RNA sequence: CUCUCGGGAAAUGCCAGAAGUUGUAGCCCCAAGGGGCUGCUUCCAGCGCACCCUCGAAAGGACCCGCGCUCCUCGGCCAAGUGCCGAAAUAUCUAAAUAGACCGGGGUGGAACAGUAUCCGAACCUAGGCGGCGAACCUUCGCCCCGGUC
Numbered sequence: 001c002u003c004u005c006g007g008g009a010a011a012u013g014c015c016a017g018a019a020g021u022u023g024u025a026g027c028c029c030c031a032a033g034g035g036g037c038u039g040c041u042u043c044c045a046g047c048g049c050a051c052c053c054u055c056g057a058a059a060g061g062a063c064c065c066g067c068g069c070u071c072c073u074c075g076g077c078c079a080a081g082u083g084c085c086g087a088a089a090u091a092u093c094u095a096a097a098u099a100g101a102c103c104g105g106g107g108u109g110g111a112a113c114a115g116u117a118u119c120c121g122a123a124c125c126u127a128g129g130c131g132g133c134g135a136a137c138c139u140u141c142g143c144c145c146c147g148g149u150c
Stems, first nucleotide, its partner, number of pairs: 004057005013049002020043001023040006075085003100150012118132002
A member of the RNA family "RT-14 RNA" from Antarcticimicrobium sediminis, 150 nucleotides long. By type it is a small RNA. NCBI's taxonomy places the organism under Bacteria, Pseudomonadati, Alphaproteobacteria, Paracoccaceae, Antarcticimicrobium. The family's consensus secondary structure is taken from published work.